[Rfam]
RNA: snaR-A sRNA
Organism: Pan paniscus
RNA sequence: CUGGAGCCAUUGUGGCUCCGGCCGGUUGCGCCGGCCCUCGGGCCCUCAGGGAGGCGAGGGUGCGAGGGUACGAGUUUGAGGCCAACCUGGUCCACAUUGAUUGAAAAAAAAAAUU
Numbered sequence: 001c002u003g004g005a006g007c008c009a010u011u012g013u014g015g016c017u018c019c020g021g022c023c024g025g026u027u028g029c030g031c032c033g034g035c036c037c038u039c040g041g042g043c044c045c046u047c048a049g050g051g052a053g054g055c056g057a058g059g060g061u062g063c064g065a066g067g068g069u070a071c072g073a074g075u076u077u078g079a080g081g082c083c084a085a086c087c088u089g090g091u092c093c094a095c096a097u098u099g100a101u102u103g104a105a106a107a108a109a110a111a112a113a114u115u
Stems, first nucleotide, its partner, number of pairs: 002104001004102002007099001009097002012095004017090002020087002024083004029078002034069005040063001042061006
Dot-bracket structure: .(.((.(.((.((((.((.((..((((.((...(((((.(.((((((........)))))).).))))).......)).))))..)).)).)))))).).)).)...........